[Rfam]
RNA sequence: AUGCCUUAAACUUAUGAAUAAGGAAGGAAAAUGAGGGUUCAGGGCGAUGCCCGAAUCCUAACUGCUAAUGUGAGAUGAAUUUUUAAGUGGGUAAAGUUGCCUCUGAGAAGAGCUGCCUACUUUGUGCGAUGCCUGGGAGACGUGAUCCGCCCC
Numbered sequence: 001a002u003g004c005c006u007u008a009a010a011c012u013u014a015u016g017a018a019u020a021a022g023g024a025a026g027g028a029a030a031a032u033g034a035g036g037g038u039u040c041a042g043g044g045c046g047a048u049g050c051c052c053g054a055a056u057c058c059u060a061a062c063u064g065c066u067a068a069u070g071u072g073a074g075a076u077g078a079a080u081u082u083u084u085a086a087g088u089g090g091g092u093a094a095a096g097u098u099g100c101c102u103c104u105g106a107g108a109a110g111a112g113c114u115g116c117c118u119a120c121u122u123u124g125u126g127c128g129a130u131g132c133c134u135g136g137g138a139g140a141c142g143u144g145a146u147c148c149g150c151c152c153c
Base pairs, nucleotide, nucleotide: 004023005022006021007020008019036057037056038055039054040053042051043050058074059073061071062070089152090151091150092149096146097145098144099143100142103137104136106134107133110130114126115125116124
A member of the RNA family "U12 minor spliceosomal RNA" from Gulo gulo, 153 nucleotides long. Rfam links the family to the GO terms pre-mRNA branch point binding, U12 snRNP and mRNA branch site recognition. NCBI's taxonomy places the organism under Eukaryota, Teleostomi, Eutheria, Laurasiatheria, Gulo. The base pairs follow the family's consensus structure. The family is grouped with related families in Rfam's "U2 clan". On this family, see Tarn and Steitz, Trends Biochem Sci 1997: "Pre-mRNA splicing: the discovery of a new spliceosome doubles the challenge".